c-di-AMP riboswitch aptamer (ydaO/yuaA leader): a 175-nucleotide RNA from Streptomyces radiopugnans.

RNA sequence: GGACCAUCCACACCACCCGAUGACAGGAGCGGGGGACCCAAGGUAAGUCGCCGUCCCGGGCCAUACGGGACGGCUUGGGGUGAAGCCAUGCCGCGCCACGCGCCGCGGCACACAUGGCCGGGCAACUCCAGCCCGAACCCGACAGCUCACCUCGCAGGCGUAGGAGAAGGAGCAC
Numbered sequence: 001g002g003a004c005c006a007u008c009c010a011c012a013c014c015a016c017c018c019g020a021u022g023a024c025a026g027g028a029g030c031g032g033g034g035g036a037c038c039c040a041a042g043g044u045a046a047g048u049c050g051c052c053g054u055c056c057c058g059g060g061c062c063a064u065a066c067g068g069g070a071c072g073g074c075u076u077g078g079g080g081u082g083a084a085g086c087c088a089u090g091c092c093g094c095g096c097c098a099c100g101c102g103c104c105g106c107g108g109c110a111c112a113c114a115u116g117g118c119c120g121g122g123c124a125a126c127u128c129c130a131g132c133c134c135g136a137a138c139c140c141g142a143c144a145g146c147u148c149a150c151c152u153c154g155c156a157g158g159c160g161u162a163g164g165a166g167a168a169g170g171a172g173c174a175c
Base pairs, nucleotide, nucleotide: 004027005026029155030154031153032152033151034150039077040076041075042074078140079139080138086117087116088115089114120134121133122132123131